[Rfam]
RNA sequence: ACACGGGAGAGGAGGUGGUCCGAACAAUUGUCUUCUGAUCGGACUCGUGAGGUGGCUGUCCGCUAGCCGCCGUCUGUGAUGGGCCGCCCGUCCGGUGUGGAAGCCGGACGACGGCACGAAUCGCCCGUCGCGUGGUACGGCGGCGAGCGAGAACCGGACAGUCACCCGACCCCCGGGCCGCCGGCACUUGUCCAGCCGGCCCGCGUGCUGCCCCCCUCCUCGGAGGGCCGGGCGCCGCGGAGCAGCCCGGGGGUUGUCCGUU
Numbered sequence: 001a002c003a004c005g006g007g008a009g010a011g012g013a014g015g016u017g018g019u020c021c022g023a024a025c026a027a028u029u030g031u032c033u034u035c036u037g038a039u040c041g042g043a044c045u046c047g048u049g050a051g052g053u054g055g056c057u058g059u060c061c062g063c064u065a066g067c068c069g070c071c072g073u074c075u076g077u078g079a080u081g082g083g084c085c086g087c088c089c090g091u092c093c094g095g096u097g098u099g100g101a102a103g104c105c106g107g108a109c110g111a112c113g114g115c116a117c118g119a120a121u122c123g124c125c126c127g128u129c130g131c132g133u134g135g136u137a138c139g140g141c142g143g144c145g146a147g148c149g150a151g152a153a154c155c156g157g158a159c160a161g162u163c164a165c166c167c168g169a170c171c172c173c174c175g176g177g178c179c180g181c182c183g184g185c186a187c188u189u190g191u192c193c194a195g196c197c198g199g200c201c202c203g204c205g206u207g208c209u210g211c212c213c214c215c216c217u218c219c220u221c222g223g224a225g226g227g228c229c230g231g232g233c234g235c236c237g238c239g240g241a242g243c244a245g246c247c248c249g250g251g252g253g254u255u256g257u258c259c260g261u262u
Base pairs, nucleotide, nucleotide: 014060015059016058017057018056019055061149062148063147064146066144067143069141070140071139072138074135075134076133077132078131167256168255169254170253171252172251173250174249175248176247177246178245180200181199182198183197184196185195
This 262-nucleotide sequence from Geodermatophilus sp. TF02-6 belongs to the Rfam family "Actinobacteria sRNA Ms_IGR-5". The match comes from Rfam's covariance-model search (76 bits). Rfam classes the family as a small RNA.